Notes:
The family of this 107-nucleotide RNA sequence from Geosporobacter ferrireducens is "SAM riboswitch aptamer (S box leader)". The family's consensus secondary structure is taken from published work.
RNA sequence: UUCCUAUCAAGAGUGGUGGAGGGACUGGCCCUAUGAAACCCGGCAACCGGCAUUUUUUUUAUGAGCACGGUGCUAAAUCCUGCAGAAUUUAUUCUGGGAGAUAGUAA
Numbered sequence: 001u002u003c004c005u006a007u008c009a010a011g012a013g014u015g016g017u018g019g020a021g022g023g024a025c026u027g028g029c030c031c032u033a034u035g036a037a038a039c040c041c042g043g044c045a046a047c048c049g050g051c052a053u054u055u056u057u058u059u060u061a062u063g064a065g066c067a068c069g070g071u072g073c074u075a076a077a078u079c080c081u082g083c084a085g086a087a088u089u090u091a092u093u094c095u096g097g098g099a100g101a102u103a104g105u106a107a
Stems, first nucleotide, its partner, number of pairs: 001107002004104005013041001015040003021031003025082001027080002042074004047070002050066002053063001078099001083096005